[Rfam]
RNA sequence: GAAUAUGCUUAUCUCCGAGCCCGUUCGCCUACAGGAUUUUCCCACGGCGGCGGGCCGUCAGGGUCCGUCCGGAAACAGGCGGGCCUCCCGUGUUCGGCAAGGAGAUAGCGGACUUCACUG
Numbered sequence: 001g002a003a004u005a006u007g008c009u010u011a012u013c014u015c016c017g018a019g020c021c022c023g024u025u026c027g028c029c030u031a032c033a034g035g036a037u038u039u040u041c042c043c044a045c046g047g048c049g050g051c052g053g054g055c056c057g058u059c060a061g062g063g064u065c066c067g068u069c070c071g072g073a074a075a076c077a078g079g080c081g082g083g084c085c086u087c088c089c090g091u092g093u094u095c096g097g098c099a100a101g102g103a104g105a106u107a108g109c110g111g112a113c114u115u116c117a118c119u120g
Base pairs, nucleotide, nucleotide: 003114006111011106012105013104014103015102016101019055020054021053022052023051024050026049027048028047029046034042035041036040061086062085063084064083065082066081067080068079069078071076087097088096
Background
The record is a 120-nucleotide RNA from Aminivibrio pyruvatiphilus, which matches "Molybdenum/Tungsten riboswitch aptamer (Moco RNA motif)" in Rfam. A search with the family's covariance model found it, with a score of 75 bits. Lineage of the source: Bacteria > Thermotogati > Synergistota > Synergistales > Aminivibrio. The base pairs follow the family's consensus structure, which is taken from published work.